[Rfam]
RNA sequence: GAAAAUGAAUCACAGACUAAGUACGCCGCGUUCUGCGGCAACGUCUGUGUGACCCACAUCCUGUGGG
Numbered sequence: 001g002a003a004a005a006u007g008a009a010u011c012a013c014a015g016a017c018u019a020a021g022u023a024c025g026c027c028g029c030g031u032u033c034u035g036c037g038g039c040a041a042c043g044u045c046u047g048u049g050u051g052a053c054c055c056a057c058a059u060c061c062u063g064u065g066g067g
Stems, first nucleotide, its partner, number of pairs: 011049007025039005053067005